[Rfam]
RNA: Small nucleolar RNA snoR639/H1
Organism: Culex quinquefasciatus
RNA sequence: ACCCCAUCAUCCAUAAGCCGGCAGAGAUUGAGUGUUCAGUCUCAUAAUCUGUGGCAUAUGAUGGGGAUAGUAAAAUUCUCACCUGUGUGUAAGAUGGUAACCAUGGGAACUCACGAUUCCCUAUCAUCUAAGAUGUUGUGGGAGACA
Numbered sequence: 001a002c003c004c005c006a007u008c009a010u011c012c013a014u015a016a017g018c019c020g021g022c023a024g025a026g027a028u029u030g031a032g033u034g035u036u037c038a039g040u041c042u043c044a045u046a047a048u049c050u051g052u053g054g055c056a057u058a059u060g061a062u063g064g065g066g067a068u069a070g071u072a073a074a075a076u077u078c079u080c081a082c083c084u085g086u087g088u089g090u091a092a093g094a095u096g097g098u099a100a101c102c103a104u105g106g107g108a109a110c111u112c113a114c115g116a117u118u119c120c121c122u123a124u125c126a127u128c129u130a131a132g133a134u135g136u137u138g139u140g141g142g143a144g145a146c147a
Stems, first nucleotide, its partner, number of pairs: 021052005079141004092129007105121004